[Rfam]
RNA sequence: GGACCAUCCCGAGCGGCUGAGAGACCUGGCUCCGUGACGCCGCAGCAACCCCCUCCUUCAGGGAGCAAGGGUGCUACUGCCAGGACCGAUGGAGU
Number, nucleotide and partner (000 for none) at each position: 001g095002g000003a000004c092005c091006a090007u089008c088009c000010c000011g000012a000013g043014c042015g041016g040017c039018u000019g000020a000021g032022a031023g030024a000025c000026c083027u082028g081029g080030c023031u022032c021033c000034g000035u000036g000037a000038c000039g017040c016041c015042g014043c013044a075045g074046c073047a072048a000049c071050c070051c000052c000053c065054u064055c063056c000057u000058u000059c000060a000061g000062g000063g055064a054065g053066c000067a000068a000069g000070g050071g049072u047073g046074c045075u044076a000077c000078u000079g087080c029081c028082a027083g026084g000085a000086c000087c079088g008089a007090u006091g005092g004093a000094g000095u001
The family of this 95-nucleotide RNA sequence from Arthrobacter mobilis is "SAM riboswitch aptamer (S box leader)". Taxonomically the source falls in Arthrobacter (Bacteria, Actinomycetes, Micrococcales, Micrococcaceae). A search with the family's covariance model found it, with a score of 54 bits.